[Rfam]
RNA sequence: UGAGUAAACCGGAUGGUCGCAGGCGCUUGCAAGCGCCUGAGGAAAGUCCGAGCUCCGCAGGGCAGGGUGCUGGAUAACGUCCAGUGGAGGCGACUCCAAGGAUAGUGCCACAGAAACAGACCGCCCAGCACUCAAUUCGACAGUUGAACCCGGCCUGCUAUAAGUAUCCUUAAUUUCAGGUUCGGGCCUCACCUGUCGAGUUGAGUGCUGGGUAAGGGUGGAAAGGUGAGGUAAGAGCUCACCAGCGGUUAGGCGACUAACCGGCUCGGUAAACCCCACCUGGAGCAAGACCGAAUAGGGGGACAAAAGGGGUGGCCCGCCCCGUCCCCGGGUAAGGUCGCUUGAGGCGCCAGGCAACUGGCGUCCUAGAUAGAUGACCAUCCACGACAGAACUCGGCUUACAGGUUUGCUCAAAAG
Dot-bracket structure: ((((((((((((((((((.((((((((....))))))))....[[[.[[[[[((((...[[[[.((((((((((.....)))))(((((....)))).)((...(((((...........(((((((((((((((((((((((.................................................)))))))))))))))))))))..)).......((((((.......)))))).((((((((....))))))).)..)))..)))))))))))))...((((......((((((....(((((.]]]])))))))))))......))))......((((((((....))))))))..........)))))))..........]]]]]]]].).))))))))))....
Annotation: Bacterial RNase P class A: a 417-nucleotide RNA sequence from Neomoorella thermoacetica. Its family is annotated with tRNA processing, ribonuclease P activity and dimeric ribonuclease P complex in the Gene Ontology. For this family Rfam cites "Ribonuclease P: unity and diversity in a tRNA processing ribozyme" (Frank and Pace, Annu Rev Biochem, 1998). Lineage of the source: Bacteria > Bacillota > Clostridia > Neomoorellales > Neomoorella thermoacetica. It is one of the family's seed sequences.